[Rfam]
RNA: nhaA-I RNA
RNA sequence: GGGUGGCAUGCCGUUUCGGGCAUUCCAGGAUUUGCGCAGGUCGGGCCGCCUCG
Numbered sequence: 001g002g003g004u005g006g007c008a009u010g011c012c013g014u015u016u017c018g019g020g021c022a023u024u025c026c027a028g029g030a031u032u033u034g035c036g037c038a039g040g041u042c043g044g045g046c047c048g049c050c051u052c053g
Base pairs, nucleotide, nucleotide: 005026006025008023009022010021011020012019035053036052038051039050040049041048